[Rfam]
Shown here is a 114-nucleotide RNA from Pseudomonas jinjuensis, a member of the family "Pseudomon-1/ErsA RNA". Lineage of the source: Bacteria > Pseudomonadati > Gammaproteobacteria > Pseudomonadales > Pseudomonas. Gene Ontology terms of the family: response to antibiotic, sRNA-mediated gene silencing and positive regulation of translation, ncRNA-mediated. The family's RNA type in Rfam is small RNA. The literature on the family includes a 2015 paper in Environ Microbiol by Ferrara et al., "Post-transcriptional regulation of the virulence-associated enzyme AlgC by the sigma(22) -dependent small RNA ErsA of Pseudomonas aeruginosa". The base pairs follow the family's consensus structure, which is taken from published work.
RNA sequence: AUGCUCCUUGCAGUGUUUAGUGUUGGCAGAUUACUGGACCCCGCCCUAGCGGUCCGGAUUAAACCCCGAACUUCUCCCUCCCCAUACGAAGCUCGGGGUUUUUUUUGCCUGCGA
Numbered sequence: 001a002u003g004c005u006c007c008u009u010g011c012a013g014u015g016u017u018u019a020g021u022g023u024u025g026g027c028a029g030a031u032u033a034c035u036g037g038a039c040c041c042c043g044c045c046c047u048a049g050c051g052g053u054c055c056g057g058a059u060u061a062a063a064c065c066c067c068g069a070a071c072u073u074c075u076c077c078c079u080c081c082c083c084a085u086a087c088g089a090a091g092c093u094c095g096g097g098g099u100u101u102u103u104u105u106u107g108c109c110u111g112c113g114a
Stems, first nucleotide, its partner, number of pairs: 034057007061102003064098006071091004

From the family's description: Functions to regulate the AlgC enzyme. Based on this information, the new name ErsA for the RNA was adopted. Negatively regulates major porin oprD expression responsible for uptake of carbapenem antibiotics, by base pairing with oprD 5'UTR (leading to increased bacterial resistance to meropenem).Positively regulates amrZ mRNA and contributes to biofilm formation and motility.